[Rfam]
RNA sequence: CACGUGCUCCGGGGUCGGUGUAAUUCCGAGCCGGCGGUUACAGUCCGCGACCCGCGUUCCUCCGCGAGGAGGGCCGGUUGAUCUGGUGGAACUCCAGGACCGACGGUGAAAGUCCGGAUGGGAGGAACACGUG
Numbered sequence: 001c002a003c004g005u006g007c008u009c010c011g012g013g014g015u016c017g018g019u020g021u022a023a024u025u026c027c028g029a030g031c032c033g034g035c036g037g038u039u040a041c042a043g044u045c046c047g048c049g050a051c052c053c054g055c056g057u058u059c060c061u062c063c064g065c066g067a068g069g070a071g072g073g074c075c076g077g078u079u080g081a082u083c084u085g086g087u088g089g090a091a092c093u094c095c096a097g098g099a100c101c102g103a104c105g106g107u108g109a110a111a112g113u114c115c116g117g118a119u120g121g122g123a124g125g126a127a128c129a130c131g132u133g
Stems, first nucleotide, its partner, number of pairs: 003131004008126003016028003030113002032102002034048004043100002052077002082098005104116003
Shown here is a 133-nucleotide sequence from Promicromonospora soli, a member of the family "FMN riboswitch aptamer (RFN element)". Rfam 15.1 lists 6,230 matches to the family in 5,120 species. The family's consensus secondary structure is taken from published work. It scores 92 bits against the family's covariance model. NCBI's taxonomy places the organism under Bacteria, Actinomycetota, Actinomycetes, Promicromonosporaceae, Promicromonospora. The RFN element is a highly conserved domain that is found frequently in the 5'-untranslated regions of prokaryotic mRNAs that encode for flavin mononucleotide (FMN) biosynthesis and transport proteins.